[Rfam]
RNA sequence: CGCAACCAAUUCAUAACAAGUUCAGUAGAAAGAACCCCAAUUUUGGGGUUUUUUUGUACGAGCAAUUUAGAUGUAGAACUGGGCUGAUUAGCCCUUUUUUU
Numbered sequence: 001c002g003c004a005a006c007c008a009a010u011u012c013a014u015a016a017c018a019a020g021u022u023c024a025g026u027a028g029a030a031a032g033a034a035c036c037c038c039a040a041u042u043u044u045g046g047g048g049u050u051u052u053u054u055u056g057u058a059c060g061a062g063c064a065a066u067u068u069a070g071a072u073g074u075a076g077a078a079c080u081g082g083g084c085u086g087a088u089u090a091g092c093c094c095u096u097u098u099u100u101u
Stems, first nucleotide, its partner, number of pairs: 031052009081094004

Gammaprotebacteria rimP leader: a 101-nucleotide RNA sequence from Avibacterium volantium. A search with the family's covariance model found it, with a score of 49 bits. Rfam links the family to the GO term regulation of gene expression.